Rfam assigns this 170-nucleotide RNA from Medicago truncatula to the family "MIR2619 microRNA precursor family".
RNA sequence: AAACAACUCCCUAUGUUUUGAUUCUUUGGCAGUUUUGAACCCCCAGUCCAGUGUUGAUUCGGUCAACGCUGACGUGGCACCCAAAGUGAGGUGCCACGUGUCAAAUUUUUUAUUUUUAUUUUGCAUUGGGGGACCAAAACUGCCAAAGAAUCAAAACAUAGGGGCUGUUU
Numbered sequence: 001a002a003a004c005a006a007c008u009c010c011c012u013a014u015g016u017u018u019u020g021a022u023u024c025u026u027u028g029g030c031a032g033u034u035u036u037g038a039a040c041c042c043c044c045a046g047u048c049c050a051g052u053g054u055u056g057a058u059u060c061g062g063u064c065a066a067c068g069c070u071g072a073c074g075u076g077g078c079a080c081c082c083a084a085a086g087u088g089a090g091g092u093g094c095c096a097c098g099u100g101u102c103a104a105a106u107u108u109u110u111u112a113u114u115u116u117u118a119u120u121u122u123g124c125a126u127u128g129g130g131g132g133a134c135c136a137a138a139a140c141u142g143c144c145a146a147a148g149a150a151u152c153a154a155a156a157c158a159u160a161g162g163g164g165c166u167g168u169u170u
Stems, first nucleotide, its partner, number of pairs: 001170002004167002007164002012160026040132006072099002075096007

It scores 114 bits against the family's covariance model.
The organism belongs to Medicago, within Eukaryota.